[Rfam]
RNA sequence: CACUUAUAGAGAAAGGCAGAGGGAAUAGACCCAAUGAAGCCUUAGCAACCUGUCAUUUGACAAGGUGCUACAUUCUACCCAAUCAAAUUGGGAAUGAUAAGCU
Numbered sequence: 001c002a003c004u005u006a007u008a009g010a011g012a013a014a015g016g017c018a019g020a021g022g023g024a025a026u027a028g029a030c031c032c033a034a035u036g037a038a039g040c041c042u043u044a045g046c047a048a049c050c051u052g053u054c055a056u057u058u059g060a061c062a063a064g065g066u067g068c069u070a071c072a073u074u075c076u077a078c079c080c081a082a083u084c085a086a087a088u089u090g091g092g093a094a095u096g097a098u099a100a101g102c103u
Stems, first nucleotide, its partner, number of pairs: 003101005013043005021032003026077004044069004049065002051062004078092006
RNA: SAM riboswitch aptamer (S box leader)
Organism: Sphingobacterium sp. ML3W